A member of the RNA family "Lysine riboswitch aptamer" from Lysinibacillus halotolerans, 187 nucleotides long.

[Rfam]
RNA sequence: GAGUGGGGUAGAGGCGCGAUAUUUAUUAGUUUUUCAUGGAGCUUAGAGCAAAGCAAUGAUAUGGAAAAUAGGAAAUGUCGCCGAAGUGUGUAAGUAGGCUCUCUACUUCAUGCUGGGUCUGCAGUGAAUAAUUGCAGGACUGUCUCAGAUGGAGUUUCCCAACCAUCUGAGGGGUGCUAUCUCAAUC
Numbered sequence: 001g002a003g004u005g006g007g008g009u010a011g012a013g014g015c016g017c018g019a020u021a022u023u024u025a026u027u028a029g030u031u032u033u034u035c036a037u038g039g040a041g042c043u044u045a046g047a048g049c050a051a052a053g054c055a056a057u058g059a060u061a062u063g064g065a066a067a068a069u070a071g072g073a074a075a076u077g078u079c080g081c082c083g084a085a086g087u088g089u090g091u092a093a094g095u096a097g098g099c100u101c102u103c104u105a106c107u108u109c110a111u112g113c114u115g116g117g118u119c120u121g122c123a124g125u126g127a128a129u130a131a132u133u134g135c136a137g138g139a140c141u142g143u144c145u146c147a148g149a150u151g152g153a154g155u156u157u158c159c160c161a162a163c164c165a166u167c168u169g170a171g172g173g174g175u176g177c178u179a180u181c182u183c184a185a186u187c
Stems, first nucleotide, its partner, number of pairs: 006182006016081009032066007085114006092107001115141002118138008143172010
Annotation:
From the family's description: Riboswitches are metabolite binding domains within certain messenger RNAs that serve as precision sensors for their corresponding targets.